[Rfam]
RNA sequence: GGAUGGGGUAGAGGUCGCGGGAGGUCAUAAGUACCGGCAGGGAGCAGGGCAGCAGAGGAACUGCCGGGAAAGGGGCCACACCGCCGAAGUCCGGUCCUCGCCCCGAGGGCCGCGGCUGGGGCUGCAGCGAACAGCUGCAGAACUGUCACCCGGUUGGCUGACCCGGCGGCCGGGUGGAGCGCUAUCUCAUUC
Numbered sequence: 001g002g003a004u005g006g007g008g009u010a011g012a013g014g015u016c017g018c019g020g021g022a023g024g025u026c027a028u029a030a031g032u033a034c035c036g037g038c039a040g041g042g043a044g045c046a047g048g049g050c051a052g053c054a055g056a057g058g059a060a061c062u063g064c065c066g067g068g069a070a071a072g073g074g075g076c077c078a079c080a081c082c083g084c085c086g087a088a089g090u091c092c093g094g095u096c097c098u099c100g101c102c103c104c105g106a107g108g109g110c111c112g113c114g115g116c117u118g119g120g121g122c123u124g125c126a127g128c129g130a131a132c133a134g135c136u137g138c139a140g141a142a143c144u145g146u147c148a149c150c151c152g153g154u155u156g157g158c159u160g161a162c163c164c165g166g167c168g169g170c171c172g173g174g175u176g177g178a179g180c181g182c183u184a185u186c187u188c189a190u191u192c
Stems, first nucleotide, its partner, number of pairs: 006187006017084004024076003034067007088117004092112008118144002122140007146177011